[Rfam]
Nucleotides: 059
Stems, first nucleotide, its partner, number of pairs: 007043005013037006025059006
Number, partner (000 for none) and nucleotide at each position: 001000u002000g003000a004000u005000g006000c007043u008042c009041a010040u011039c012000a013037c014036u015035c016034a017033c018032c019000c020000a021000u022000g023000c024000a025059g026058a027057u028056c029055c030054c031000a032018g033017g034016u035015g036014g037013g038000c039011g040010a041009u042008g043007g044000a045000a046000u047000g048000g049000c050000a051000c052000a053000u054030g055029g056028g057027a058026u059025c